RNA: tRNA
Organism: Aeromonas hydrophila
RNA sequence: CGGUGAUUAGCGCAGCCCGGUAGCGCAUCUGGUUUGGGACCAGAGGGUCAAAGGUUCGAAUCCUUUAUCACCGA
Numbered sequence: 001c002g003g004u005g006a007u008u009a010g011c012g013c014a015g016c017c018c019g020g021u022a023g024c025g026c027a028u029c030u031g032g033u034u035u036g037g038g039a040c041c042a043g044a045g046g047g048u049c050a051a052a053g054g055u056u057c058g059a060a061u062c063c064u065u066u067a068u069c070a071c072c073g074a
Base pairs, nucleotide, nucleotide: 001073002072003071004070005069006068007067010026011025012024013023028044029043030042031041032040050066051065052064053063054062